[Rfam]
RNA sequence: GUGAGCUGGAGCACGACACGCUGCUACGGCAGAGGAAACUCCUCCCUCCAUACAGGAAAUGUGAUCCGGAGAUGGAUAAUCAGAGAUGAUUGGCAACGGAGCAGAAAAGAAUCUAACCUGGCGCACGAUGAUGGCAAAACCUGAGAUUUCCAGAGAAGGAAUGAAAAAGACGUCCCACAUGGAGCAAAGCCAAACAGAACUUUAGGAUCCUGUACCAAGUUCAGGUAGGCUGCAAAGCGUAAUAUCGUGAAAACAGAAGGAGGGUUACUCCCAGCACAC
Numbered sequence: 001g002u003g004a005g006c007u008g009g010a011g012c013a014c015g016a017c018a019c020g021c022u023g024c025u026a027c028g029g030c031a032g033a034g035g036a037a038a039c040u041c042c043u044c045c046c047u048c049c050a051u052a053c054a055g056g057a058a059a060u061g062u063g064a065u066c067c068g069g070a071g072a073u074g075g076a077u078a079a080u081c082a083g084a085g086a087u088g089a090u091u092g093g094c095a096a097c098g099g100a101g102c103a104g105a106a107a108a109g110a111a112u113c114u115a116a117c118c119u120g121g122c123g124c125a126c127g128a129u130g131a132u133g134g135c136a137a138a139a140c141c142u143g144a145g146a147u148u149u150c151c152a153g154a155g156a157a158g159g160a161a162u163g164a165a166a167a168a169g170a171c172g173u174c175c176c177a178c179a180u181g182g183a184g185c186a187a188a189g190c191c192a193a194a195c196a197g198a199a200c201u202u203u204a205g206g207a208u209c210c211u212g213u214a215c216c217a218a219g220u221u222c223a224g225g226u227a228g229g230c231u232g233c234a235a236a237g238c239g240u241a242a243u244a245u246c247g248u249g250a251a252a253a254c255a256g257a258a259g260g261a262g263g264g265u266u267a268c269u270c271c272c273a274g275c276a277c278a279c
Base pairs, nucleotide, nucleotide: 001279002278003277005275006274007273008272009271010269011268012249013248014247015246016245021032022031023030024029037266038265039264041263042262043261044260045259046184047183048182049181051214052213053212054211055210059180060179061178062177063176064077065076066075067074068073078091079090080089081088082087092175093174097172098171112160113159114158118153119152120151121150133141134140188231189230190229191228197222198221199220200219201218
The record is a 279-nucleotide RNA from Candidatus Nitrosarchaeum limnium, which matches "Archaeal RNase P" in Rfam. Clan: RNaseP clan. Ribonuclease P (RNase P) is a ubiquitous endoribonuclease, found in archaea, bacteria and eukarya as well as chloroplasts and mitochondria. Its best characterised activity is the generation of mature 5'-ends of tRNAs by cleaving the 5'-leader elements of precursor-tRNAs. Cellular RNase Ps are ribonucleoproteins.